[Rfam]
RNA sequence: UGGCGGGGGAGCACUACAACCGGAGGAGCCUGCGGUUUAAUUGGACUCAACGCCGGAAAUCUUACCAGCUCCGACAGUAGCGAUGACGCUCAGUGUGAUGAGCUCGGUUGAGCUACUGAGAGGAGGUGCAUGGCCGCCGUCAGCUCGUACCGUGAGGCGUCCUGUUAAGUCAGGCAACGAGCGAGACCCGCACUCCUAAUUGCCAGCGACACCGUGAGGUGGUCGGGUACAUUAGGAGGACUGCCGUCGCCAAGACGGAGGAAGGAACGGGCAACGGUAGGUCAGUAUGCCCCGAAUGAGCUGGGCUACACGCGGGCUACAAUGGUCGGGACAAUGGGUUCCAACCUCGAGAGAGGACGGUAAUCUCCUAAACCCGGUCGUAGUUCGGAUUGAGGGUUGAAACUCACCCUCAUGAAGCUGGAUUCGGUAGUAAUCGCGUGUCACCAGCGCGCGGUGAAUACGUCCCUGCUCCUUGCACACACCGCCCGUCAAAGCACCCGAGUGGGGUCCGGAUGAGGCCGCCGUGAGGCGGUCGAAUCUGGGCUCCGCAAGGGGGCUUAAGUCGUAACAAGGUAGCCGUAGGGGAAUCUGCGGCUGGAU
Numbered sequence: 001u002g003g004c005g006g007g008g009g010a011g012c013a014c015u016a017c018a019a020c021c022g023g024a025g026g027a028g029c030c031u032g033c034g035g036u037u038u039a040a041u042u043g044g045a046c047u048c049a050a051c052g053c054c055g056g057a058a059a060u061c062u063u064a065c066c067a068g069c070u071c072c073g074a075c076a077g078u079a080g081c082g083a084u085g086a087c088g089c090u091c092a093g094u095g096u097g098a099u100g101a102g103c104u105c106g107g108u109u110g111a112g113c114u115a116c117u118g119a120g121a122g123g124a125g126g127u128g129c130a131u132g133g134c135c136g137c138c139g140u141c142a143g144c145u146c147g148u149a150c151c152g153u154g155a156g157g158c159g160u161c162c163u164g165u166u167a168a169g170u171c172a173g174g175c176a177a178c179g180a181g182c183g184a185g186a187c188c189c190g191c192a193c194u195c196c197u198a199a200u201u202g203c204c205a206g207c208g209a210c211a212c213c214g215u216g217a218g219g220u221g222g223u224c225g226g227g228u229a230c231a232u233u234a235g236g237a238g239g240a241c242u243g244c245c246g247u248c249g250c251c252a253a254g255a256c257g258g259a260g261g262a263a264g265g266a267a268c269g270g271g272c273a274a275c276g277g278u279a280g281g282u283c284a285g286u287a288u289g290c291c292c293c294g295a296a297u298g299a300g301c302u303g304g305g306c307u308a309c310a311c312g313c314g315g316g317c318u319a320c321a322a323u324g325g326u327c328g329g330g331a332c333a334a335u336g337g338g339u340u341c342c343a344a345c346c347u348c349g350a351g352a353g354a355g356g357a358c359g360g361u362a363a364u365c366u367c368c369u370a371a372a373c374c375c376g377g378u379c380g381u382a383g384u385u386c387g388g389a390u391u392g393a394g395g396g397u398u399g400a401a402a403c404u405c406a407c408c409c410u411c412a413u414g415a416a417g418c419u420g421g422a423u424u425c426g427g428u429a430g431u432a433a434u435c436g437c438g439u440g441u442c443a444c445c446a447g448c449g450c451g452c453g454g455u456g457a458a459u460a461c462g463u464c465c466c467u468g469c470u471c472c473u474u475g476c477a478c479a480c481a482c483c484g485c486c487c488g489u490c491a492a493a494g495c496a497c498c499c500g501a502g503u504g505g506g507g508u509c510c511g512g513a514u515g516a517g518g519c520c521g522c523c524g525u526g527a528g529g530c531g532g533u534c535g536a537a538u539c540u541g542g543g544c545u546c547c548g549c550a551a552g553g554g555g556g557c558u559u560a561a562g563u564c565g566u567a568a569c570a571a572g573g574u575a576g577c578c579g580u581a582g583g584g585g586a587a588u589c590u591g592c593g594g595c596u597g598g599a600u
Stems, first nucleotide, its partner, number of pairs: 001479002003476003007473007016463002020427005025320001027318008035309002041056004065304007075118004080113002088108003092104003122293002125291004131287002133282003136278004143182006150157002161174004188270003193238007203227002207225003210221004241261002244258005324379007336367003341360002345356004386417001391412007433455008482572001484569001487565002490562001492559004497554003502549013517534007574597010
Shown here is a 600-nucleotide part of an RNA from uncultured archaeon A07HB70, a member of the family "Archaeal small subunit ribosomal RNA". The family's consensus secondary structure is taken from published work. A reference for the family is Yusupov et al. (2001), "Crystal structure of the ribosome at 5.5 A resolution", Science.